RNA sequence: CGCGGCACCUCGGGGUGCGUCGCAGACGCUGAGAUCAAACCCGUAGAACCUGAACCGGCUAGAACCGGCGGAGGGAAGGUUUUGGACAGCAUU
Number, nucleotide and partner (000 for none) at each position: 001c000002g000003c000004g000005g000006c000007a080008c079009c078010u077011c043012g042013g041014g040015g000016u037017g029018c028019g027020u026021c025022g000023c000024a000025g021026a020027c019028g018029c017030u000031g000032a000033g000034a000035u000036c000037a016038a000039a000040c014041c013042c012043g011044u000045a000046g000047a000048a000049c074050c073051u072052g000053a000054a000055c068056c067057g066058g065059c000060u000061a000062g000063a000064a000065c058066c057067g056068g055069c000070g000071g000072a051073g050074g049075g000076a000077a010078g009079g008080u007081u000082u000083u000084g000085g000086a000087c000088a000089g000090c000091a000092u000093u000